This 85-nucleotide RNA sequence from Pomovirus betae belongs to the Rfam family "Tymovirus/Pomovirus/Furovirus tRNA-like 3' UTR element". A reference for the family is Matsuda and Dreher (2004), "The tRNA-like structure of Turnip yellow mosaic virus RNA is a 3'-translational enhancer", Virology. The match comes from Rfam's covariance-model search (54 bits). This family represents a tRNA-like structure found in the 3' UTR of Tymoviruses, Pomoviruses and Furovirus.
[Rfam]
RNA sequence: GGACGCGACAAGGUGUCGCCGUUUAUAAUACACAUAAACGCUGUGGGGUGCAAAUCCCCCCCUAACUUGAGGGAAAUCAAGCCCC
Number, nucleotide and partner (000 for none) at each position: 001g000002g000003a000004c000005g019006c018007g017008a016009c015010a000011a000012g051013g000014u000015g009016u008017c007018g006019c005020c040021g039022u038023u037024u036025a035026u034027a000028a000029u000030a000031c000032a000033c000034a026035u025036a024037a023038a022039c021040g020041c000042u000043g000044u000045g059046g058047g057048g056049u000050g000051c012052a000053a000054a000055u000056c048057c047058c046059c045060c072061c071062c000063u000064a000065a000066c081067u080068u079069g078070a077071g061072g060073g000074a000075a000076a000077u070078c069079a068080a067081g066082c000083c000084c000085c000